RNA: Small nucleolar RNA SNORA15
RNA sequence: GCAUGGCAGAAUUCUGUUGUACUCUGUCUAUAGUACACGCAGCCAGACACCAUGCUACAUCAUCCACUCUCUCUCUGUGCAUUUCAAUAGUGAUGAUGAUCAUCGCACAGUCAUCAUCAGACACAUCAGAGCGAGUACAUUC
Numbered sequence: 001g002c003a004u005g006g007c008a009g010a011a012u013u014c015u016g017u018u019g020u021a022c023u024c025u026g027u028c029u030a031u032a033g034u035a036c037a038c039g040c041a042g043c044c045a046g047a048c049a050c051c052a053u054g055c056u057a058c059a060u061c062a063u064c065c066a067c068u069c070u071c072u073c074u075c076u077g078u079g080c081a082u083u084u085c086a087a088u089a090g091u092g093a094u095g096a097u098g099a100u101c102a103u104c105g106c107a108c109a110g111u112c113a114u115c116a117u118c119a120g121a122c123a124c125a126u127c128a129g130a131g132c133g134a135g136u137a138c139a140u141u142c
Stems, first nucleotide, its partner, number of pairs: 001055006014042004069135003073131005078123002088119001090117008